The record is a 68-nucleotide RNA sequence from Carlito syrichta, which matches "Selenocysteine insertion sequence 1" in Rfam.
[Rfam]
RNA sequence: GACGCUUCAUGACAGGAAGGACUGAAAUGUCUCACGGACGCCUGGUCUUUCCCUGAUGUACUUGUGCC
Number, nucleotide and partner (000 for none) at each position: 001g068002a000003c066004g065005c064006u000007u000008c000009a000010u000011g000012a000013c000014a000015g052016g051017a050018a049019g048020g047021a046022c045023u044024g000025a000026a000027a000028u000029g039030u038031c037032u000033c000034a000035c000036g000037g031038a030039c029040g000041c000042c000043u000044g023045g022046u021047c020048u019049u018050u017051c016052c015053c000054u000055g000056a000057u000058g000059u000060a000061c000062u000063u000064g005065u004066g003067c000068c001
Its family is annotated with selenocysteine incorporation in the Gene Ontology. It scores 38 bits against the family's covariance model. The family's consensus secondary structure is taken from published work.